[Rfam]
RNA sequence: AAUAACCAAAUAUGACACUUGGGCUAAGGGGUCAAGUUGUAAUUUUUCGUACAUCUCCCCCCCCAGGGGCCCAGGUAUCAUGAUGCCCCCAAAAUAAACAGCCUUGAGCCACUAGAAGAAAAGCACACUAGACCUAACACAAAUUAAGUGAAUACCAAAAUGGUAGCUACAGUUUAUUUCUAUCAUUUCCA
Number, nucleotide and partner (000 for none) at each position: 001a000002a000003u000004a000005a000006c000007c000008a000009a000010a000011u000012a000013u000014g000015a000016c000017a000018c000019u000020u000021g000022g000023g000024c000025u000026a000027a000028g000029g000030g000031g000032u000033c000034a000035a000036g000037u000038u000039g000040u000041a000042a000043u000044u000045u000046u000047u000048c000049g000050u000051a000052c000053a000054u000055c000056u000057c000058c000059c000060c000061c000062c000063c000064c000065a000066g000067g000068g000069g000070c000071c000072c000073a000074g000075g000076u000077a000078u000079c000080a000081u000082g000083a000084u000085g000086c000087c000088c000089c000090c000091a000092a000093a000094a000095u000096a000097a000098a000099c000100a000101g000102c000103c000104u000105u000106g000107a000108g000109c000110c000111a000112c000113u000114a000115g000116a000117a000118g000119a000120a000121a000122a000123g000124c000125a000126c000127a000128c000129u000130a000131g000132a000133c000134c000135u000136a000137a000138c000139a000140c000141a000142a000143a000144u000145u000146a000147a187148g186149u185150g184151a183152a000153u000154a000155c000156c000157a179158a178159a177160a000161u000162g000163g000164u000165a000166g000167c000168u000169a000170c000171a000172g000173u000174u000175u000176a000177u159178u158179u157180c000181u000182a000183u151184c150185a149186u148187u147188u000189c000190c000191a000